[Rfam]
The record is a 77-nucleotide RNA sequence from Enterobacteriaceae bacterium strain FGI 57, which matches "Enterobacterial sRNA STnc240" in Rfam. It is annotated as a small RNA. The base pairs follow the family's consensus structure, which was predicted with WAR.
RNA sequence: UCAAUUUGAUGCAGAAUGUGCCGCUUGCAAAAUAUGAGAUUAACCGACGUUUUAAUACGCGUCGGUUAUUUUUUUGC
Numbered sequence: 001u002c003a004a005u006u007u008g009a010u011g012c013a014g015a016a017u018g019u020g021c022c023g024c025u026u027g028c029a030a031a032a033u034a035u036g037a038g039a040u041u042a043a044c045c046g047a048c049g050u051u052u053u054a055a056u057a058c059g060c061g062u063c064g065g066u067u068a069u070u071u072u073u074u075u076g077c
Base pairs, nucleotide, nucleotide: 011021012020041068042067043066044065045064046063047062048061049060